Rfam assigns this 128-nucleotide sequence to the family "SAM-I/IV (S-adenosyl methionine) riboswitch aptamer".
RNA sequence: CACCAGCAUCAGGAGCGACCCAUUAGGGUCCGGCAACCUAGCAACGGAGAUAGCUAAGGUGCCUUGAGAGUGAACAAUCAUUCUCGAUGUGCGGGUUCCAGUUGAGCCCGAAACAGAAACUCCGACGG
Numbered sequence: 001c002a003c004c005a006g007c008a009u010c011a012g013g014a015g016c017g018a019c020c021c022a023u024u025a026g027g028g029u030c031c032g033g034c035a036a037c038c039u040a041g042c043a044a045c046g047g048a049g050a051u052a053g054c055u056a057a058g059g060u061g062c063c064u065u066g067a068g069a070g071u072g073a074a075c076a077a078u079c080a081u082u083c084u085c086g087a088u089g090u091g092c093g094g095g096u097u098c099c100a101g102u103u104g105a106g107c108c109c110g111a112a113a114c115a116g117a118a119a120c121u122c123c124g125a126c127g128g
Base pairs, nucleotide, nucleotide: 006090007089008088009087010086015031017030018029019028020027021026032063033062034061037059038058039057040055041054042053046121047120092110093109094108095107096106097105098104

Notes: A reference for the family is Weinberg et al. (2008), "The aptamer core of SAM-IV riboswitches mimics the ligand-binding site of SAM-I riboswitches", RNA. Its Rfam clan is "SAM clan". Gene Ontology terms of the family: regulation of gene expression and S-adenosylmethionine metabolic process.